Shown here is a 115-nucleotide RNA sequence from Oceanisphaera avium, a member of the family "Ribosomal S15 leader". Its family is annotated with regulation of translation, ncRNA-mediated in the Gene Ontology. A search with the family's covariance model found it, with a score of 92 bits. For this family Rfam cites "Pseudoknot and translational control in the expression of the S15 ribosomal protein" (Benard et al., Biochimie, 1996). Taxonomically the source falls in Oceanisphaera (Bacteria, Pseudomonadati, Gammaproteobacteria, Aeromonadaceae).

RNA sequence: CUUUCCAGCUGAAUUAGUGAUCGGCUGGAAAAACAUUCAUCUCUUUGGAGUAUACAAGAUGUCACUAAAUGCAGAAACUAAAGCACAAAUCGUUGCCGAACACGCUCGCGCCGAA
Numbered sequence: 001c002u003u004u005c006c007a008g009c010u011g012a013a014u015u016a017g018u019g020a021u022c023g024g025c026u027g028g029a030a031a032a033a034c035a036u037u038c039a040u041c042u043c044u045u046u047g048g049a050g051u052a053u054a055c056a057a058g059a060u061g062u063c064a065c066u067a068a069a070u071g072c073a074g075a076a077a078c079u080a081a082a083g084c085a086c087a088a089a090u091c092g093u094u095g096c097c098g099a100a101c102a103c104g105c106u107c108g109c110g111c112c113g114a115a
Stems, first nucleotide, its partner, number of pairs: 007026006044069005050063001